[Rfam]
RNA sequence: AGUUGCUGCUUUCUUGGACGUUUCCUCCUAUAAACUCGGCGGUGCCCUCGGGCACCGCCAUCUUUUUUGCGCGG
Number, nucleotide and partner (000 for none) at each position: 001a000002g000003u000004u000005g000006c000007u000008g019009c000010u017011u016012u000013c000014u000015u000016g011017g010018a000019c008020g000021u000022u000023u000024c000025c000026u000027c000028c000029u000030a000031u000032a000033a000034a000035c000036u000037c000038g059039g058040c057041g056042g055043u054044g053045c052046c051047c000048u000049c000050g000051g046052g045053c044054a043055c042056c041057g040058c039059c038060a000061u000062c000063u000064u000065u000066u000067u000068u000069g000070c000071g000072c000073g000074g000